Rfam assigns this 83-nucleotide RNA from Neogale vison to the family "mir-1343 microRNA precursor family". The organism belongs to Neogale, within Eukaryota. The match comes from Rfam's covariance-model search (66 bits). The base pairs follow the family's consensus structure, which was predicted with RNAalifold.
[Rfam]
RNA sequence: CUGGCGUCCGUGCUGGGGAGUGGUCCCCGGAGCGGACCUCCACUCCGGCCCUUACUGGGGCCUGCACUCUCACUCCGGGCCCG
Numbered sequence: 001c002u003g004g005c006g007u008c009c010g011u012g013c014u015g016g017g018g019a020g021u022g023g024u025c026c027c028c029g030g031a032g033c034g035g036a037c038c039u040c041c042a043c044u045c046c047g048g049c050c051c052u053u054a055c056u057g058g059g060g061c062c063u064g065c066a067c068u069c070u071c072a073c074u075c076c077g078g079g080c081c082c083g
Stems, first nucleotide, its partner, number of pairs: 003081003007078002010075001012073001015070004020065004025060006034051002037048002
Dot-bracket structure: ..(((.((.(.(..((((.((((.((((((...((.((........)).))...)))))).)))).))))..).).)))))..